RNA sequence: UGGACAAAUUAUUGUAUUCGACUGUAUUCACGGCGUGAAACAGGGAGUUACACUGUUUUUUAAACGGAAGGUGAAUCAAUUAACAUAAUGGACUCCU
Numbered sequence: 001u002g003g004a005c006a007a008a009u010u011a012u013u014g015u016a017u018u019c020g021a022c023u024g025u026a027u028u029c030a031c032g033g034c035g036u037g038a039a040a041c042a043g044g045g046a047g048u049u050a051c052a053c054u055g056u057u058u059u060u061u062a063a064a065c066g067g068a069a070g071g072u073g074a075a076u077c078a079a080u081u082a083a084c085a086u087a088a089u090g091g092a093c094u095c096c097u
Stems, first nucleotide, its partner, number of pairs: 002096003009091007017083002020081002023078002026076006034066003037059007
RNA: MIR6152 microRNA precursor family
Organism: Nicotiana sylvestris